About this RNA
Shown here is a 73-nucleotide RNA sequence from Allobosea sp. TND4EK4, a member of the family "Makes More Granules Regulator RNA (mmgR)". The base pairs follow the family's consensus structure. From the family's description: SuhB later renamed mmgR (makes more granules regulator) was a putative non-coding RNA found multiple times in the Agrobacterium tumefaciens genome and related alpha-proteobacteria. Other non-coding RNAs uncovered in the same analysis include: speF, ybhL, metA, and serC.Several studies inSinorhizobium meliloti showed that suhB element is indeed a non-coding RNA:firstly it was detected on Northern blot and called Sm8RNA, secondly in an RNAseq study referred to as SmelC689.The mutant phenotype's (strain lacking the small RNA) cytoplasm contains higher content of polyhydroxybutyrate (PBH)storage granules than wild type strain. Taxonomically the source falls in Allobosea (Bacteria, Pseudomonadota, Alphaproteobacteria, Alloboseaceae).
Nucleotides: 073
Base pairs, nucleotide, nucleotide: 008020009019010018011017038058039057040056041055042054043053044052045051046050
Number, partner (000 for none) and nucleotide at each position: 001000u002000u003000g004000c005000g006000u007000c008020g009019c010018c011017c012000u013000c014000c015000u016000u017011g018010g019009g020008c021000g022000u023000u024000u025000c026000c027000u028000c029000c030000c031000u032000a033000g034000a035000c036000u037000u038058g039057g040056g041055c042054u043053g044052c045051g046050c047000u048000c049000u050046g051045c052044g053043c054042g055041g056040c057039c058038c059000u060000u061000u062000u063000u064000u065000c066000u067000u068000g069000u070000c071000g072000g073000a